[Rfam]
RNA: ylbH leader
RNA sequence: AUAAAAAAAGCCCCUAGAUAUAUCAUCUAGGGUAAAUUGACAAAUGAUUUCCAUUUGUCUAAUGGGAGAGGAGAAACCGGAGGAAGAACUUAUGGGGAAAAGUCUUCUCCGCGG
Numbered sequence: 001a002u003a004a005a006a007a008a009a010g011c012c013c014c015u016a017g018a019u020a021u022a023u024c025a026u027c028u029a030g031g032g033u034a035a036a037u038u039g040a041c042a043a044a045u046g047a048u049u050u051c052c053a054u055u056u057g058u059c060u061a062a063u064g065g066g067a068g069a070g071g072a073g074a075a076a077c078c079g080g081a082g083g084a085a086g087a088a089c090u091u092a093u094g095g096g097g098a099a100a101a102g103u104c105u106u107c108u109c110c111g112c113g114g
Stems, first nucleotide, its partner, number of pairs: 012032008033066001036063002041057006078111004083107004088103004